[Rfam]
RNA sequence: AAUGUUCUUCAGGGCGGGGUGUAAGUCCCCACUGGCGGUAAAGUCCGCGACCUGCGAAAGCAGUUGAACCGGUGAAACUCCGGUACCAACAGUAUAGUCUGGAUGGAAGAAGACGAGC
Numbered sequence: 001a002a003u004g005u006u007c008u009u010c011a012g013g014g015c016g017g018g019g020u021g022u023a024a025g026u027c028c029c030c031a032c033u034g035g036c037g038g039u040a041a042a043g044u045c046c047g048c049g050a051c052c053u054g055c056g057a058a059a060g061c062a063g064u065u066g067a068a069c070c071g072g073u074g075a076a077a078c079u080c081c082g083g084u085a086c087c088a089a090c091a092g093u094a095u096a097g098u099c100u101g102g103a104u105g106g107a108a109g110a111a112g113a114c115g116a117g118c
Base pairs, nucleotide, nucleotide: 003116006113007112008111009110010109017029018028019027031098032097033088034087035048036047037046038045043086044085052063053062068084069083070082071081072080090101091100092099

FMN riboswitch aptamer (RFN element): a 118-nucleotide RNA from Oribacterium sinus. Pairs were carried over by alignment from the consensus structure, which is taken from published work.